[Rfam]
RNA sequence: CAUCCUCUGCUGUGUGCGACAGCGUCAAAACAUUCGCCUUGUCCCUUAAUGACGACUACGGGGCAUCAACGGAAGCCGGGAGCGCAAGUCCGCCUCGCAGCGGGAAGCCCGAUGGCCCCCAAGGUGUCCCACUUGAACCCCGGGUUCAAGGUCGUUUCGAAGCAUCGCCAUUGGCGGAGGAUGU
Numbered sequence: 001c002a003u004c005c006u007c008u009g010c011u012g013u014g015u016g017c018g019a020c021a022g023c024g025u026c027a028a029a030a031c032a033u034u035c036g037c038c039u040u041g042u043c044c045c046u047u048a049a050u051g052a053c054g055a056c057u058a059c060g061g062g063g064c065a066u067c068a069a070c071g072g073a074a075g076c077c078g079g080g081a082g083c084g085c086a087a088g089u090c091c092g093c094c095u096c097g098c099a100g101c102g103g104g105a106a107g108c109c110c111g112a113u114g115g116c117c118c119c120c121a122a123g124g125u126g127u128c129c130c131a132c133u134u135g136a137a138c139c140c141c142g143g144g145u146u147c148a149a150g151g152u153c154g155u156u157u158c159g160a161a162g163c164a165u166c167g168c169c170a171u172u173g174g175c176g177g178a179g180g181a182u183g184u
Base pairs, nucleotide, nucleotide: 002182003181004180005179006178007177008176009175010174011173012171013170014169017167018166019165036152037151038150040148041147044144045143060130061129062128064126065125066124067123071120072119075116076115077114078113084108085107089104090103091102092101093100
Dot-bracket structure: .(((((((((((((..(((................(((.((..((..............(((.((((...((..((((.....((...(((((......)))))..))....))))..))..)))).)))............))..)).)))............))).))).))))))))))..